RNA sequence: CGCCGUGACAGUGAUGACCACAAGCUGUUUGCACAUUUGCCGACCCUGCGUGAGUGACCCACAGGAAUCUAAGAACACCAGCUGAUG
Numbered sequence: 001c002g003c004c005g006u007g008a009c010a011g012u013g014a015u016g017a018c019c020a021c022a023a024g025c026u027g028u029u030u031g032c033a034c035a036u037u038u039g040c041c042g043a044c045c046c047u048g049c050g051u052g053a054g055u056g057a058c059c060c061a062c063a064g065g066a067a068u069c070u071a072a073g074a075a076c077a078c079c080a081g082c083u084g085a086u087g
Stems, first nucleotide, its partner, number of pairs: 001056003011034003016029003040052001041050002
RNA: Small nucleolar RNA TBR6